[Rfam]
Nucleotides: 108
Stems, first nucleotide, its partner, number of pairs: 002107005
Number, partner (000 for none) and nucleotide at each position: 001000a002107g003106u004105g005104g006103c007000c008000g009000u010000g011000a012000c013000g014000a015000c016000u017000u018000g019000g020000a021000a022000a023000u024000a025000u026000u027000c028000a029000a030000g031000c032000u033000c034000a035000a036000c037000a038000g039000a040000c041000c042000a043000a044000a045000u046000c047000a048000c049000a050000u051000g052000u053000c054000u055000c056000u057000c058000u059000c060000u061000a062000u063000a064000g065000u066000g067000a068000g069000a070000u071000u072000g073000a074000u075000c076000u077000g078000u079000a080000u081000g082000c083000c084000g085000a086000u087000u088000a089000u090000c091000c092000c093000g094000c095000u096000g097000a098000a099000c100000u101000g102000a103006g104005c105004c106003a107002u108000a